FMN riboswitch aptamer (RFN element): a 157-nucleotide RNA sequence from Telmatospirillum siberiense.
The family's consensus secondary structure is taken from published work.
RNA sequence: GCUUGUUCUCAGGGCAGGGUGUGAUUCCCGACCGGCGGUAAUCCUUGGAAUCCCAGGGGAAGCCCGCGAGCGCUCUACCGUCUGCAAGGCGGUGAGGUCAGCAGAUCCGGUGAGAAACCGGAGCCGACGGUUAAAGUCCGGAUGAAAGAGGAUAAGC
Numbered sequence: 001g002c003u004u005g006u007u008c009u010c011a012g013g014g015c016a017g018g019g020u021g022u023g024a025u026u027c028c029c030g031a032c033c034g035g036c037g038g039u040a041a042u043c044c045u046u047g048g049a050a051u052c053c054c055a056g057g058g059g060a061a062g063c064c065c066g067c068g069a070g071c072g073c074u075c076u077a078c079c080g081u082c083u084g085c086a087a088g089g090c091g092g093u094g095a096g097g098u099c100a101g102c103a104g105a106u107c108c109g110g111u112g113a114g115a116a117a118c119c120g121g122a123g124c125c126g127a128c129g130g131u132u133a134a135a136g137u138c139c140g141g142a143u144g145a146a147a148g149a150g151g152a153u154a155a156g157c
Base pairs, nucleotide, nucleotide: 003155004154005153006152007151008150009149010148017029018028019027031137032136033126034125035067036066037065038064062124063123070102071101106122107121108120109119110118128140129139130138